Rfam assigns this 105-nucleotide RNA from Helianthus annuus to the family "MIR6450 microRNA precursor family".
The match comes from Rfam's covariance-model search (70 bits).
Rfam 15.1 lists 53 matches to the family in 7 species.

RNA sequence: AGGAUUUCUGUCCCACGGCUCCUGAAACGGGUCAAACCGGGUCGGGGGCCGUGACAGCCCCCGACCUGGUUUGACCCGUUCCAGGAGCCGCGGGACAGAAAUCCU
Numbered sequence: 001a002g003g004a005u006u007u008c009u010g011u012c013c014c015a016c017g018g019c020u021c022c023u024g025a026a027a028c029g030g031g032u033c034a035a036a037c038c039g040g041g042u043c044g045g046g047g048g049c050c051g052u053g054a055c056a057g058c059c060c061c062c063g064a065c066c067u068g069g070u071u072u073g074a075c076c077c078g079u080u081c082c083a084g085g086a087g088c089c090g091c092g093g094g095a096c097a098g099a100a101a102u103c104c105u
Base pairs, nucleotide, nucleotide: 001105002104003103004102005101006100007099008098009097013093014092016090017089018088019087020086021085022084023083024082028078029077030076031075032074033073034072035071036070042064043063044062045061046060047059048058049057